[Rfam]
Nucleotides: 076
Base pairs, nucleotide, nucleotide: 015043016042017041018040021076022075023074024073025072026071027070028039029038030037048064049063051061052060
Number, partner (000 for none) and nucleotide at each position: 001000a002000g003000u004000u005000g006000c007000a008000a009000g010000c011000u012000u013000g014000a015043g016042g017041c018040c019000a020000c021076a022075g023074c024073a025072g026071a027070a028039g029038u030037g031000u032000c033000a034000u035000g036000a037030c038029a039028u040018g041017g042016c043015u044000u045000g046000u047000c048064a049063g050000a051061u052060u053000a054000u055000a056000a057000u058000a059000a060052a061051a062000c063049c064048u065000a066000c067000a068000a069000a070027u071026u072025c073024u074023g075022c076021u